[Rfam]
RNA: Small nucleolar RNA SNORD53/SNORD92
RNA sequence: CUGCCAUGAUGAGUUCAUUCUGGUUUCGCUUGUGUCUGAUAAUUUGUGAUGAUGCGUUUCUCUUGGCUGUCUGAGCAG
Number, nucleotide and partner (000 for none) at each position: 001c078002u077003g076004c075005c000006a000007u000008g000009a000010u000011g000012a000013g000014u000015u000016c000017a000018u000019u000020c000021u000022g000023g000024u000025u000026u000027c000028g000029c000030u000031u000032g000033u000034g000035u000036c000037u000038g000039a000040u000041a000042a000043u000044u000045u000046g000047u000048g000049a000050u000051g000052a000053u000054g000055c000056g000057u000058u000059u000060c000061u000062c000063u000064u000065g000066g000067c000068u000069g000070u000071c000072u000073g000074a000075g004076c003077a002078g001